The family of this 97-nucleotide RNA sequence from Pseudobdellovibrio exovorus is "Purine riboswitch aptamer". The source organism's lineage runs through Bacteria, Pseudomonadati, Pseudobdellovibrionaceae, Pseudobdellovibrio and Pseudobdellovibrio exovorus.

[Rfam]
RNA sequence: UCUUCGAUGCUGACCCCGCAUCAUAUAAGUCAGUAAUGGGACUGACGUUUCUACAAAGCACCGAAAAUGCUUAACUAUGGGGGCAAAAAUGCUAUCU
Numbered sequence: 001u002c003u004u005c006g007a008u009g010c011u012g013a014c015c016c017c018g019c020a021u022c023a024u025a026u027a028a029g030u031c032a033g034u035a036a037u038g039g040g041a042c043u044g045a046c047g048u049u050u051c052u053a054c055a056a057a058g059c060a061c062c063g064a065a066a067a068u069g070c071u072u073a074a075c076u077a078u079g080g081g082g083g084c085a086a087a088a089a090u091g092c093u094a095u096c097u
Base pairs, nucleotide, nucleotide: 019082021080022079023078024077025076029046030045031044032043033042034041056072057071058070059069060068
It scores 51 bits against the family's covariance model.